[Rfam]
RNA sequence: UUUAAAUCGCUGAGCAAGAGUAGUACACAAAUAAUCAUUCUUUCCAGAGAGUCGGGGGUGGUGGAAGCCCGAUAUGAAGAUAUUUGUCGAAUGGACUUGUGAGAGGUAUCUUGAAUCUUAGUAGGGAUGCCCGGUUUCCCCCGUUAAAGGGAUAGGAUAUUGAACCAAUUUGGUUCUGUAUCCGAAUGAGGAAGCGGAAAAUGCUCUGCUUCAAAGGGAGGUGGCACCACGGUUCCAAAGAAUCGUCCUCUAU
Dot-bracket structure: ......((......((((........(((((........(.(........((((((...........))))))).)......)))))........))))...)).(((((((...........))))))).(((......)))...............................................(((((((........))))))).....((((.......(((((((....)))))))))))...
RNA: T-box leader
Organism: Neobacillus cucumis